[Rfam]
RNA sequence: GAAGGAACCAGCGUGUGUUACAAUCCUGGGCCGACAGGCUUCCGGGUAACCAUCUGAACCUCCUUCGUGUUUAGGGAUCGUGGCUUGCAAUUUUUCCACGUGAACGAGGA
Numbered sequence: 001g002a003a004g005g006a007a008c009c010a011g012c013g014u015g016u017g018u019u020a021c022a023a024u025c026c027u028g029g030g031c032c033g034a035c036a037g038g039c040u041u042c043c044g045g046g047u048a049a050c051c052a053u054c055u056g057a058a059c060c061u062c063c064u065u066c067g068u069g070u071u072u073a074g075g076g077a078u079c080g081u082g083g084c085u086u087g088c089a090a091u092u093u094u095u096c097c098a099c100g101u102g103a104a105c106g107a108g109g110a
Stems, first nucleotide, its partner, number of pairs: 001066006013053003025046002029042001030039003074105001079100005
Eukaryotic small subunit ribosomal RNA: a 110-nucleotide part of an RNA from Cinara cedri. Gene Ontology terms of the family: ribosome and structural constituent of ribosome. NCBI's taxonomy places the organism under Eukaryota, Arthropoda, Dicondylia, Aphididae, Cinara. On this family, see Cannone et al., BMC Bioinformatics 2002: "The comparative RNA web (CRW) site: an online database of comparative sequence and structure information for ribosomal, intron, and other RNAs". Pairs were carried over by alignment from the consensus structure, which is taken from published work.